let-7 microRNA precursor family: a 91-nucleotide RNA from Cynoglossus semilaevis.
Pairs were carried over by alignment from the consensus structure, which was predicted with RNAalifold.
Clan: let-7 microRNA precursor clan.
Its family is annotated with miRNA-mediated post-transcriptional gene silencing and RISC complex in the Gene Ontology.
Rfam's curators write: This family represents the microRNAs (miRNA) let-7 and mir-98. let-7 was identified from a study of developmental timing in C. elegans, and was later shown to be part of a much larger class of non-coding RNAs termed miRNAs.
The literature on the family includes a 2001 paper in Nat Rev Genet by Rougvie, "Control of developmental timing in animals".
Taxonomically the source falls in Cynoglossus (Eukaryota, Opisthokonta, Euteleosteomorpha, Pleuronectoidei).
Rfam 15.1 lists 8,694 matches to the family in 797 species.
RNA sequence: CUGUGGUGAGGUAGUAAGUUGUGUUGUUGUUGGGGAUCAGGAUUAUUCACCCCGUUCAGGAGAUAACUAUACAACUUACUGCCUUCCUCAG
Numbered sequence: 001c002u003g004u005g006g007u008g009a010g011g012u013a014g015u016a017a018g019u020u021g022u023g024u025u026g027u028u029g030u031u032g033g034g035g036a037u038c039a040g041g042a043u044u045a046u047u048c049a050c051c052c053c054g055u056u057c058a059g060g061a062g063a064u065a066a067c068u069a070u071a072c073a074a075c076u077u078a079c080u081g082c083c084u085u086c087c088u089c090a091g
Base pairs, nucleotide, nucleotide: 001091002090003089005087006086008085009084010083011082012081013080014079015078016077017076018075019074020073021072022071023070024069026067027066032053033052034051035050055062056061